[Rfam]
This 129-nucleotide RNA from Cavia porcellus belongs to the Rfam family "Small nucleolar RNA SNORA65". Rfam describes the family as follows. U65 belongs to the H/ACA class of snoRNAs which are thought to guide the sites of modification of uridines to pseudouridines.

RNA sequence: CCCGCCACUGCACCUGACCACUUCCCCGUUGGCUGGUGCAAUCCAGUGGUGAGCUGACAGUGACCCCAGCUAAGGAAACAGGGCUGUUCUUGGUGUGGGCAGCCCUGUGCCGAGAGCAUGGGCACAGCC
Numbered sequence: 001c002c003c004g005c006c007a008c009u010g011c012a013c014c015u016g017a018c019c020a021c022u023u024c025c026c027c028g029u030u031g032g033c034u035g036g037u038g039c040a041a042u043c044c045a046g047u048g049g050u051g052a053g054c055u056g057a058c059a060g061u062g063a064c065c066c067c068a069g070c071u072a073a074g075g076a077a078a079c080a081g082g083g084c085u086g087u088u089c090u091u092g093g094u095g096u097g098g099g100c101a102g103c104c105c106u107g108u109g110c111c112g113a114g115a116g117c118a119u120g121g122g123c124a125c126a127g128c129c
Stems, first nucleotide, its partner, number of pairs: 005049006017037004022031001065122004069117003074111002079107006087099003
Its family is annotated with nucleolus and RNA processing in the Gene Ontology. The source organism's lineage runs through Eukaryota, Metazoa, Teleostomi, Mammalia and Cavia. A reference for the family is Huttenhofer et al. (2001), "RNomics: an experimental approach that identifies 201 candidates for novel, small, non-messenger RNAs in mouse", EMBO J. By type it is an H/ACA-box small nucleolar RNA. Pairs were carried over by alignment from the consensus structure, which was predicted with RNAalifold.